[Rfam]
RNA sequence: AUCUUAACGGGAGAUGAUGUUCCUCCUUUAACCGCCUUUCUGAUCUUUUUCUCUAAGGAUGAUGACGUCUAACAACAG
Numbered sequence: 001a002u003c004u005u006a007a008c009g010g011g012a013g014a015u016g017a018u019g020u021u022c023c024u025c026c027u028u029u030a031a032c033c034g035c036c037u038u039u040c041u042g043a044u045c046u047u048u049u050u051c052u053c054u055a056a057g058g059a060u061g062a063u064g065a066c067g068u069c070u071a072a073c074a075a076c077a078g
Stems, first nucleotide, its partner, number of pairs: 010026004016069006035058003
A member of the RNA family "Fluoride riboswitch aptamer (crcB RNA motif)" from Photobacterium damselae, 78 nucleotides long.
The family's consensus secondary structure is taken from published work.
Taxonomically the source falls in Photobacterium damselae subsp. damselae (Bacteria, Vibrionales, Vibrionaceae, Photobacterium damselae).